This 62-nucleotide RNA sequence from Ictidomys tridecemlineatus belongs to the Rfam family "U7 small nuclear RNA". Lineage of the source: Eukaryota > Opisthokonta > Metazoa > Rodentia > Ictidomys. It is one of the family's seed sequences.
RNA sequence: AAGUGUUGCAGCUCUUUUAGAAUUUGUCUAGCAGGCUUUCUGGCAGUUGCCGGAAAGCCCCU
Numbered sequence: 001a002a003g004u005g006u007u008g009c010a011g012c013u014c015u016u017u018u019a020g021a022a023u024u025u026g027u028c029u030a031g032c033a034g035g036c037u038u039u040c041u042g043g044c045a046g047u048u049g050c051c052g053g054a055a056a057g058c059c060c061c062u
Stems, first nucleotide, its partner, number of pairs: 034059011